[Rfam]
RNA: Purine riboswitch aptamer
RNA sequence: UCUUUUUAUAUGAAAGUAUCUCGUAUAAUGCCGGGAAUAGGCCCGGACGUCUCUACCUGGGAACCGUAAAUUUCCGGACUACGAGGGAAUACUAGUCAGGU
Numbered sequence: 001u002c003u004u005u006u007u008a009u010a011u012g013a014a015a016g017u018a019u020c021u022c023g024u025a026u027a028a029u030g031c032c033g034g035g036a037a038u039a040g041g042c043c044c045g046g047a048c049g050u051c052u053c054u055a056c057c058u059g060g061g062a063a064c065c066g067u068a069a070a071u072u073u074c075c076g077g078a079c080u081a082c083g084a085g086g087g088a089a090u091a092c093u094a095g096u097c098a099g100g101u
Stems, first nucleotide, its partner, number of pairs: 019086007031046005057077007